Rfam assigns this 81-nucleotide RNA sequence from Carlito syrichta to the family "Small nucleolar RNA SNORD115". Taxonomically the source falls in Carlito (Eukaryota, Euteleostomi, Boreoeutheria, Haplorrhini). The family's RNA type in Rfam is C/D-box small nucleolar RNA. Pairs were carried over by alignment from the consensus structure, which was predicted with PFOLD.

[Rfam]
RNA sequence: GGGUCAAUGGUGAGUACUUCAUGUUUCCUUGAGGAGCGGUGAUGACUAAAUGUCACGUACAAUGGCAUGACGCUGAGGCCC
Number, nucleotide and partner (000 for none) at each position: 001g081002g080003g079004u078005c075006a074007a000008u072009g071010g000011u000012g000013a000014g000015u000016a000017c000018u000019u000020c000021a000022u000023g000024u000025u000026u000027c000028c000029u000030u000031g000032a000033g000034g000035a000036g000037c000038g000039g000040u000041g000042a000043u000044g000045a000046c000047u000048a000049a000050a000051u000052g000053u000054c000055a000056c000057g000058u000059a000060c000061a000062a000063u000064g000065g000066c000067a000068u000069g000070a000071c009072g008073c000074u006075g005076a000077g000078g004079c003080c002081c001